The family of this 50-nucleotide RNA is "ssNA-helicase RNA". By type it is a small RNA. Rfam's curators put it in the seed alignment.

RNA sequence: UCGCGAAAGGGGCAGUAUUACCCCUUUCGCGUAUCAUGUAGCAUGUAGCA
Numbered sequence: 001u002c003g004c005g006a007a008a009g010g011g012g013c014a015g016u017a018u019u020a021c022c023c024c025u026u027u028c029g030c031g032u033a034u035c036a037u038g039u040a041g042c043a044u045g046u047a048g049c050a
Base pairs, nucleotide, nucleotide: 002031003030004029005028006027007026008025009024010023011022